[Rfam]
RNA sequence: AAGACUAUACUUUCAGGGAUCAUUUCUAUAGUUUCUCACUAGAGAAGCUUCUCUGAAUGUGUAGAGUACCAGAAGCCACGAGGAUGAGUUGCAGUGUUCUCUCCUGAGCGUGAAACAGGCUGGGUUCUGUCUUGGGGCAGCAGCCAUUUGCCAUUGAUGAUCGUUCUACUCUGUGUAUGGCAGAGUUGGAGGGAGAGAACACAGUCUGAGUGGU
Dot-bracket structure: .((...(.(((...((((.....))))..))).)....))........((...(......)..)).........(((((..............((((((((((((..(((.......(((..(((.((((......))))..)))....))).........)))..((((((((.....)))))).))..)))))))))))).......)))))
RNA: Small nucleolar RNA U3